[Rfam]
RNA sequence: AAUACAUAUCGGCAAAGCUACUGAAAAGUAGUGACGCAAAACUAUAGGGACUACUUCCUCGAAGGAAAAGUCAGCCAGUUGCAUAU
Numbered sequence: 001a002a003u004a005c006a007u008a009u010c011g012g013c014a015a016a017g018c019u020a021c022u023g024a025a026a027a028g029u030a031g032u033g034a035c036g037c038a039a040a041a042c043u044a045u046a047g048g049g050a051c052u053a054c055u056u057c058c059u060c061g062a063a064g065g066a067a068a069a070g071u072c073a074g075c076c077a078g079u080u081g082c083a084u085a086u
Stems, first nucleotide, its partner, number of pairs: 012037002017032006040080004047076002049072003056066004